[Rfam]
RNA sequence: ACCCUCUUCCCUUUCCCAUCGGAUCUGAAUGCUGGUCUUGGUGGUCGUAAAGGAGGGAAAGUGAUAGUGAAGCACGCUCAUACUGCCUUGCAGUCUGGCAUAGCAUGUGAGCUUGUUUCAAACAGGA
Numbered sequence: 001a002c003c004c005u006c007u008u009c010c011c012u013u014u015c016c017c018a019u020c021g022g023a024u025c026u027g028a029a030u031g032c033u034g035g036u037c038u039u040g041g042u043g044g045u046c047g048u049a050a051a052g053g054a055g056g057g058a059a060a061g062u063g064a065u066a067g068u069g070a071a072g073c074a075c076g077c078u079c080a081u082a083c084u085g086c087c088u089u090g091c092a093g094u095c096u097g098g099c100a101u102a103g104c105a106u107g108u109g110a111g112c113u114u115g116u117u118u119c120a121a122a123c124a125g126g127a
Stems, first nucleotide, its partner, number of pairs: 003056005016044005022037004073115002076112004089105003

Background: The family of this 127-nucleotide sequence from Dipodomys ordii is "Small nucleolar RNA SNORA61". It scores 111 bits against the family's covariance model. ACA61 is a member of the H/ACA class of snoRNA that guide the sites of modification of uridines to pseudouridines. Pairs were carried over by alignment from the consensus structure, which was predicted with PFOLD.